[Rfam]
RNA sequence: AAGAAUGAAUAAAUAAAAACAUGUAUAAGCUUAUGAAUAGGCAUAAGCGUUUCUACCGAAGGACCGUAAAUCAUUGGACUACAUGUGCUAAAGAAAGACUA
Dot-bracket structure: ..................(((((((...(((((((......)))))))........(.((.((.......)).)).)..)))))))...............
Numbered sequence: 001a002a003g004a005a006u007g008a009a010u011a012a013a014u015a016a017a018a019a020c021a022u023g024u025a026u027a028a029g030c031u032u033a034u035g036a037a038u039a040g041g042c043a044u045a046a047g048c049g050u051u052u053c054u055a056c057c058g059a060a061g062g063a064c065c066g067u068a069a070a071u072c073a074u075u076g077g078a079c080u081a082c083a084u085g086u087g088c089u090a091a092a093g094a095a096a097g098a099c100u101a
Stems, first nucleotide, its partner, number of pairs: 019086007029048007057077001059075002062072002
This 101-nucleotide sequence from Natronobacillus azotifigens belongs to the Rfam family "Purine riboswitch aptamer". Riboswitches are metabolite binding domains within certain messenger RNAs that serve as precision sensors for their corresponding targets. Taxonomically the source falls in Natronobacillus (Bacteria, Bacilli, Caryophanales, Bacillaceae).